[Rfam]
Bradyrhizobiaceae sRNA BjrC68: an 84-nucleotide RNA sequence from Rugositalea oryzae. NCBI's taxonomy places the organism under Bacteria, Pseudomonadati, Alphaproteobacteria, Hyphomicrobiales, Rugositalea. By type it is a small RNA. For this family Rfam cites "Small RNAs of the Bradyrhizobium/Rhodopseudomonas lineage and their analysis" (Madhugiri et al., RNA Biol, 2012).
RNA sequence: GCGAGACAACGGUUGGGGCGGAUACCCGGCACCGUCCCGUCCGUCGAGGGGCUCAGGUCGCAAGACCUGAGCCCCUCACUUUUU
Numbered sequence: 001g002c003g004a005g006a007c008a009a010c011g012g013u014u015g016g017g018g019c020g021g022a023u024a025c026c027c028g029g030c031a032c033c034g035u036c037c038c039g040u041c042c043g044u045c046g047a048g049g050g051g052c053u054c055a056g057g058u059c060g061c062a063a064g065a066c067c068u069g070a071g072c073c074c075c076u077c078a079c080u081u082u083u084u
Stems, first nucleotide, its partner, number of pairs: 010043003014039005048075008057066002